[Rfam]
RNA sequence: ACUUCAAAAAUGCCGAAUCAAACAGCUUGUUUGUACGGGGGACGAUUUACUGGGGUGAAUGUUUGCAGCUUUGCAAACUAGGGAGAUACCUCUUCCCGAAUCCGUCAACUAACCUCGGAGGCACAAGGAGGGAAAAA
Numbered sequence: 001a002c003u004u005c006a007a008a009a010a011u012g013c014c015g016a017a018u019c020a021a022a023c024a025g026c027u028u029g030u031u032u033g034u035a036c037g038g039g040g041g042a043c044g045a046u047u048u049a050c051u052g053g054g055g056u057g058a059a060u061g062u063u064u065g066c067a068g069c070u071u072u073g074c075a076a077a078c079u080a081g082g083g084a085g086a087u088a089c090c091u092c093u094u095c096c097c098g099a100a101u102c103c104g105u106c107a108a109c110u111a112a113c114c115u116c117g118g119a120g121g122c123a124c125a126a127g128g129a130g131g132g133a134a135a136a137a
Stems, first nucleotide, its partner, number of pairs: 011123004019033004036117005043052002053103003061078004081097004
Rfam assigns this 137-nucleotide RNA sequence from Paenibacillus piri to the family "c-di-AMP riboswitch aptamer (ydaO/yuaA leader)". The organism belongs to Paenibacillus, within Bacteria.